This 136-nucleotide RNA sequence from Kalanchoe fedtschenkoi belongs to the Rfam family "small nucleolar RNA snoR137". Its family is annotated with nucleolus and RNA processing in the Gene Ontology. The source organism's lineage runs through Eukaryota, Viridiplantae, Embryophyta, eudicotyledons and Kalanchoe.

[Rfam]
RNA sequence: GUUGCUUCUGAGAGUUGAGUGACCAUUUUACCAAUAAGUCACUCUUAGAACUGAAGCAUAAAUGAAAAACUAAUGAUAGUCUUAAACAACUUGAUGAUAAUCCAUGUCAUUCUGUUACCUGUCUACUGGUAAAUUG
Numbered sequence: 001g002u003u004g005c006u007u008c009u010g011a012g013a014g015u016u017g018a019g020u021g022a023c024c025a026u027u028u029u030a031c032c033a034a035u036a037a038g039u040c041a042c043u044c045u046u047a048g049a050a051c052u053g054a055a056g057c058a059u060a061a062a063u064g065a066a067a068a069a070c071u072a073a074u075g076a077u078a079g080u081c082u083u084a085a086a087c088a089a090c091u092u093g094a095u096g097a098u099a100a101u102c103c104a105u106g107u108c109a110u111u112c113u114g115u116u117a118c119c120u121g122u123c124u125a126c127u128g129g130u131a132a133a134u135u136g
Stems, first nucleotide, its partner, number of pairs: 003058006017044004021039001075130001077128004088116003093111004